RNA: Small nucleolar RNA snR86, nucleotides 174 to 773
RNA sequence: CAUUGUAUAUCCAAUUAGGUGAUACAUUUAUUCAUUUUAACUUUGAAGCAAUCUGUCUUACUAUUAACAUGUUUAUAUUUUGCAUUAGCCGGAUAAAAUACUUCGAUGACAUGGUAGAGAGGAUGAAUGAUCUCGAGUCGGGGAACGUAUUUACUUAGGUCGGGAUGCGAGAGGAAAGAUAAAGAUUUUAUGGAGAUUUAAGAGAUAAGGUGAGUGGGGUCUUUUUUUCCGCUUGGCUGUAUAGCGUGAUUGAGUUUUUCAGUCGUGUCUAUGUUCAAGUUCAUGAUAUUCUGUGGUUGAUUUUGUUAAUUUCACACGUUUCACUACCAUACAGUGUGUUGACAGAAACUCCGCGUUAAGGUUUAUUAUAGGAAAUUUUUCGACUCCUCUUUUCCUAUUUUUUAUUGUCUUUUGUGACGUUUUUAUUUUUUUUCUUAUUAUCCUCCUCCUUUCUAAGUAUUUCUUUUACUUGGGUUUUCAUUUGUGCUUUUAAUUUAUGUUGUUGAGGUAUUUUGCGCUUUUGCAUGGAUGGACAUGGGUGAGACUUUAUUAUUUCAAACUUGGUGAAUAUGUGCUGCCUUGUUGGUUGCAAUGUGUGAU
Numbered sequence: 001c002a003u004u005g006u007a008u009a010u011c012c013a014a015u016u017a018g019g020u021g022a023u024a025c026a027u028u029u030a031u032u033c034a035u036u037u038u039a040a041c042u043u044u045g046a047a048g049c050a051a052u053c054u055g056u057c058u059u060a061c062u063a064u065u066a067a068c069a070u071g072u073u074u075a076u077a078u079u080u081u082g083c084a085u086u087a088g089c090c091g092g093a094u095a096a097a098a099u100a101c102u103u104c105g106a107u108g109a110c111a112u113g114g115u116a117g118a119g120a121g122g123a124u125g126a127a128u129g130a131u132c133u134c135g136a137g138u139c140g141g142g143g144a145a146c147g148u149a150u151u152u153a154c155u156u157a158g159g160u161c162g163g164g165a166u167g168c169g170a171g172a173g174g175a176a177a178g179a180u181a182a183a184g185a186u187u188u189u190a191u192g193g194a195g196a197u198u199u200a201a202g203a204g205a206u207a208a209g210g211u212g213a214g215u216g217g218g219g220u221c222u223u224u225u226u227u228u229c230c231g232c233u234u235g236g237c238u239g240u241a242u243a244g245c246g247u248g249a250u251u252g253a254g255u256u257u258u259u260c261a262g263u264c265g266u267g268u269c270u271a272u273g274u275u276c277a278a279g280u281u282c283a284u285g286a287u288a289u290u291c292u293g294u295g296g297u298u299g300a301u302u303u304u305g306u307u308a309a310u311u312u313c314a315c316a317c318g319u320u321u322c323a324c325u326a327c328c329a330u331a332c333a334g335u336g337u338g339u340u341g342a343c344a345g346a347a348a349c350u351c352c353g354c355g356u357u358a359a360g361g362u363u364u365a366u367u368a369u370a371g372g373a374a375a376u377u378u379u380u381c382g383a384c385u386c387c388u389c390u391u392u393u394c395c396u397a398u399u400u401u402u403u404a405u406u407g408u409c410u411u412u413u414g415u416g417a418c419g420u421u422u423u424u425a426u427u428u429u430u431u432u433u434c435u436u437a438u439u440a441u442c443c444u445c446c447u448c449c450u451u452u453c454u455a456a457g458u459a460u461u462u463c464u465u466u467u468a469c470u471u472g473g474g475u476u477u478u479c480a481u482u483u484g485u486g487c488u489u490u491u492a493a494u495u496u497a498u499g500u501u502g503u504u505g506a507g508g509u510a511u512u513u514u515g516c517g518c519u520u521u522u523g524c525a526u527g528g529a530u531g532g533a534c535a536u537g538g539g540u541g542a543g544a545c546u547u548u549a550u551u552a553u554u555u556c557a558a559a560c561u562u563g564g565u566g567a568a569u570a571u572g573u574g575c576u577g578c579c580u581u582g583u584u585g586g587u588u589g590c591a592a593u594g595u596g597u598g599a600u
Stems, first nucleotide, its partner, number of pairs: 001594007012585004017580005023574004030569002033566004042559006055545008068537009081525004087519003095514006101507003107502002110499005116491004124484007132142004143464001145462001147460007158448002162444006176429004181424005189414002192411002195408001199404003204399004209394002212391003216387001218386002226375005231280006240273005245267010283369006291361002293354004299349001301347009313338005